[Rfam]
RNA: mir-970 microRNA precursor family
RNA sequence: CGGGCCGAGCCUUGCGUGUGAUCUUAUUGGUAGUGUGGCUUGGAAACUAUCAUAAGACACACGCGGCUCUGUCCG
Numbered sequence: 001c002g003g004g005c006c007g008a009g010c011c012u013u014g015c016g017u018g019u020g021a022u023c024u025u026a027u028u029g030g031u032a033g034u035g036u037g038g039c040u041u042g043g044a045a046a047c048u049a050u051c052a053u054a055a056g057a058c059a060c061a062c063g064c065g066g067c068u069c070u071g072u073c074c075g
Base pairs, nucleotide, nucleotide: 001075002074003073004072005071008068009067010066011065014064015063016062019059020058022057023056024055028052029051030050031049032048